[Rfam]
RNA sequence: GGGAGUGGAUCGGUGCUGGUGUGCCGCCCGGUCUUCAAAGCCGGUUUGGGCCUCGUGAACAGCGGGGCCGGUGGGUUCGAUUCCCAUGCACUCCC
Numbered sequence: 001g002g003g004a005g006u007g008g009a010u011c012g013g014u015g016c017u018g019g020u021g022u023g024c025c026g027c028c029c030g031g032u033c034u035u036c037a038a039a040g041c042c043g044g045u046u047u048g049g050g051c052c053u054c055g056u057g058a059a060c061a062g063c064g065g066g067g068c069c070g071g072u073g074g075g076u077u078c079g080a081u082u083c084c085c086a087u088g089c090a091c092u093c094c095c
Stems, first nucleotide, its partner, number of pairs: 001095007009087001011026006028044005049069005072086004
Rfam assigns this 95-nucleotide sequence from Saltatorellus ferox to the family "Selenocysteine transfer RNA".
Clan: tRNA clan.
The organism belongs to Saltatorellus, within Bacteria.